Record summary
Shown here is a 120-nucleotide RNA sequence from Takifugu rubripes, a member of the family "U5 spliceosomal RNA". Rfam 15.1 lists 28,527 matches to the family in 2,489 species. The literature on the family includes a 1997 paper in Nucleic Acids Res by Zwieb, "The uRNA database".

RNA sequence: CUUGCAUGUGUUCUCUGCAAAGCGUACAAGUCUUUCGCCUUUUACUAAAGACUUUCCGUGCAGAGGAGCAGCAGCGCUUUGUCAGUUGCAUUUUUUGCAGGCUCUGCCACUGGUAAAGCC
Numbered sequence: 001c002u003u004g005c006a007u008g009u010g011u012u013c014u015c016u017g018c019a020a021a022g023c024g025u026a027c028a029a030g031u032c033u034u035u036c037g038c039c040u041u042u043u044a045c046u047a048a049a050g051a052c053u054u055u056c057c058g059u060g061c062a063g064a065g066g067a068g069c070a071g072c073a074g075c076g077c078u079u080u081g082u083c084a085g086u087u088g089c090a091u092u093u094u095u096u097g098c099a100g101g102c103u104c105u106g107c108c109a110c111u112g113g114u115a116a117a118g119c120c
Stems, first nucleotide, its partner, number of pairs: 003081002006078001011067009028054008101119003105115002